[Rfam]
RNA: Small nucleolar RNA Z13/snr52
RNA sequence: ACGACCGAUAUGAUGAAAGAAUUUCGGAUGUUAAAUCAUAUACUCUCCGAGAGCGCAAACCCCAUGUGGAGAUUUUCCGUUGCCUUCCUUCUGAUCCUAGCU
Numbered sequence: 001a002c003g004a005c006c007g008a009u010a011u012g013a014u015g016a017a018a019g020a021a022u023u024u025c026g027g028a029u030g031u032u033a034a035a036u037c038a039u040a041u042a043c044u045c046u047c048c049g050a051g052a053g054c055g056c057a058a059a060c061c062c063c064a065u066g067u068g069g070a071g072a073u074u075u076u077c078c079g080u081u082g083c084c085u086u087c088c089u090u091c092u093g094a095u096c097c098u099a100g101c102u
Stems, first nucleotide, its partner, number of pairs: 003101001025079004